[Rfam]
RNA sequence: CACUGGCAUGCAGCCGUUAUGAUGACGAGUCAGGUCGGGCUCCGCGGUGGGUUUGGUCGCCCAUGGGACGGAGAUAUGGAAAGGGUCUCGUACGCUGUAAGACUAACUUCGGUUGAGCUUGCGAUAUGGGCCUAUGCCUGGAUAAGUCAUAAUGUUACUGCCCAGUG
Dot-bracket structure: ((((((...((((.(((((((((..((.(.(...(((..(((((..((((((......))))))....)))))...)))...(((((.((((...(((.((.(((((....))).)))).))).)))))))))..).))).....)))))))))...))))))))))
A member of the RNA family "Tombusvirus 3' cap-independent translation element" from Tombusvirus moroccoense, 167 nucleotides long.
NCBI's taxonomy places the organism under Viruses, Tolivirales, Procedovirinae, Tombusvirus, Moroccan pepper virus.
Rfam's curators put it in the seed alignment.